[Rfam]
Rfam assigns this 117-nucleotide sequence from Cyprinodon variegatus to the family "Small nucleolar RNA SNORD67". The family's RNA type in Rfam is C/D-box small nucleolar RNA. snoRNA HBII-166 belongs to the C/D family of snoRNAs. Pairs were carried over by alignment from the consensus structure. It scores 56 bits against the family's covariance model.
RNA sequence: GAGGUGACUGUGAUGAGUUGCACUAUUAGCCAGGCUGCUGUUUGCAGUGGCACAGCAGGCCUGACCUGACUCCUAUGUGUUGACAACCUAUUGUGCACAGGGGCCAUCUGAGUCACC
Numbered sequence: 001g002a003g004g005u006g007a008c009u010g011u012g013a014u015g016a017g018u019u020g021c022a023c024u025a026u027u028a029g030c031c032a033g034g035c036u037g038c039u040g041u042u043u044g045c046a047g048u049g050g051c052a053c054a055g056c057a058g059g060c061c062u063g064a065c066c067u068g069a070c071u072c073c074u075a076u077g078u079g080u081u082g083a084c085a086a087c088c089u090a091u092u093g094u095g096c097a098c099a100g101g102g103g104c105c106a107u108c109u110g111a112g113u114c115a116c117c
Base pairs, nucleotide, nucleotide: 004116006114007113008112026069027068028067029066031063032062033061035058036057037056041054043052044051045050